[Rfam]
This 177-nucleotide RNA from Noviherbaspirillum denitrificans belongs to the Rfam family "Manganese Mn2+ riboswitch aptamer (yybP-ykoY)".
The organism belongs to Noviherbaspirillum, within Bacteria.
The literature on the family includes a 2001 paper in Curr Biol by Argaman et al., "Novel small RNA-encoding genes in the intergenic regions of Escherichia coli".
From the family's description: This RNA was originally discovered in E. coli during a large scale screen and was named SraF. The family was later found to exist upstream of related families of protein genes in many bacteria, including the the yybP and ykoK genes in B. subtilis.
Nucleotides: 177
Base pairs, nucleotide, nucleotide: 026043027042028041045085046084047083048082049081050080051079052078053077054076062075063074064073065072066071086176087175088174089173090172091171092170
Number, partner (000 for none) and nucleotide at each position: 001000u002000g003000c004000c005000c006000c007000g008000u009000c010000a011000u012000u013000g014000g015000g016000g017000a018000g019000u020000a021000g022000c023000c024000u025000c026043c027042c028041u029000c030000c031000g032000a033000u034000u035000u036000g037000c038000g039000a040000g041028a042027g043026g044000g045085g046084c047083u048082u049081g050080u051079g052078u053077c054076a055000a056000c057000a058000g059000a060000c061000u062075u063074g064073g065072c066071u067000g068000c069000a070000a071066g072065g073064c074063c075062a076054u077053g078052g079051c080050a081049c082048a083047a084046g085045c086176g087175a088174c089173u090172c091171c092170a093000g094000g095000u096000u097000u098000g099000g100000c101000g102000a103000g104000a105000c106000c107000u108000u109000u110000g111000a112000c113000c114000a115000u116000g117000c118000c119000g120000c121000u122000u123000c124000c125000g126000g127000u128000u129000g130000g131000g132000c133000c134000g135000g136000a137000g138000g139000g140000c141000g142000c143000g144000c145000g146000u147000g148000g149000u150000c151000a152000u153000c154000g155000g156000u157000a158000u159000u160000c161000a162000u163000c164000c165000g166000g167000c168000c169000c170092u171091g172090g173089a174088g175087u176086u177000u